[Rfam]
RNA sequence: GGCUCUUAAGGGCAAAUCUAGUGAAAGCUAGAGACGCAAAGUUACCGGUCUAAGGGGAAACCUACGAUAGCGGGACUGCCAAA
Numbered sequence: 001g002g003c004u005c006u007u008a009a010g011g012g013c014a015a016a017u018c019u020a021g022u023g024a025a026a027g028c029u030a031g032a033g034a035c036g037c038a039a040a041g042u043u044a045c046c047g048g049u050c051u052a053a054g055g056g057g058a059a060a061c062c063u064a065c066g067a068u069a070g071c072g073g074g075a076c077u078g079c080c081a082a083a
Stems, first nucleotide, its partner, number of pairs: 012037002017032006040077004045073003048068003055062002
RNA: c-di-GMP-I riboswitch aptamer
Organism: Thalassotalea agarivorans